Description: This 366-nucleotide sequence from Sedimentisphaera salicampi belongs to the Rfam family "Bacterial RNase P class A". The match comes from Rfam's covariance-model search (280 bits). The family's consensus secondary structure is taken from published work.
RNA sequence: UGAGCAGACCGGCCGAUCGCCGGCUGAGAUAUGCCGGAGGAAAGUCCGGGCAGGAAAGGGCACGGAGGUGGCUAACGGCCACCCGGAGCGAUCCGAGGGAAAGUGCAGCAGAAAACAUACAGCCGAUGGGCAUUAUGCCGCAGGUAAUGGUGAAAUGGUGCGGUAAGAGCGCACCGCGGAAGCGGCGACGUUUCCGGCACGGCAAACCCCUCCGCCUGCAAGACCAAGUAUGCCGGUGCCGGCCCGGCAAAUACCGGCGGGUAGGUUGCUUGCAUAAGUGCAGAGCUGAAUGGCAACAUUCAGUCCAGUUAAAUGAUCGGCUCCGCACCAGCGGAACAGAACCCGGCUUACAGGCCUGCUCAGUUU
Numbered sequence: 001u002g003a004g005c006a007g008a009c010c011g012g013c014c015g016a017u018c019g020c021c022g023g024c025u026g027a028g029a030u031a032u033g034c035c036g037g038a039g040g041a042a043a044g045u046c047c048g049g050g051c052a053g054g055a056a057a058g059g060g061c062a063c064g065g066a067g068g069u070g071g072c073u074a075a076c077g078g079c080c081a082c083c084c085g086g087a088g089c090g091a092u093c094c095g096a097g098g099g100a101a102a103g104u105g106c107a108g109c110a111g112a113a114a115a116c117a118u119a120c121a122g123c124c125g126a127u128g129g130g131c132a133u134u135a136u137g138c139c140g141c142a143g144g145u146a147a148u149g150g151u152g153a154a155a156u157g158g159u160g161c162g163g164u165a166a167g168a169g170c171g172c173a174c175c176g177c178g179g180a181a182g183c184g185g186c187g188a189c190g191u192u193u194c195c196g197g198c199a200c201g202g203c204a205a206a207c208c209c210c211u212c213c214g215c216c217u218g219c220a221a222g223a224c225c226a227a228g229u230a231u232g233c234c235g236g237u238g239c240c241g242g243c244c245c246g247g248c249a250a251a252u253a254c255c256g257g258c259g260g261g262u263a264g265g266u267u268g269c270u271u272g273c274a275u276a277a278g279u280g281c282a283g284a285g286c287u288g289a290a291u292g293g294c295a296a297c298a299u300u301c302a303g304u305c306c307a308g309u310u311a312a313a314u315g316a317u318c319g320g321c322u323c324c325g326c327a328c329c330a331g332c333g334g335a336a337c338a339g340a341a342c343c344c345g346g347c348u349u350a351c352a353g354g355c356c357u358g359c360u361c362a363g364u365u366u
Stems, first nucleotide, its partner, number of pairs: 001362007009354002011351001012321007020037005042349003046346005051218004058245004063214005068082005083097001084095004098209002103207002105203002120149002122145003127140003157175006176198001177196008222267004232258006238248003285304008

NCBI's taxonomy places the organism under Bacteria, Pseudomonadati, Phycisphaerae, Sedimentisphaeraceae, Sedimentisphaera. The family's RNA type in Rfam is ribozyme.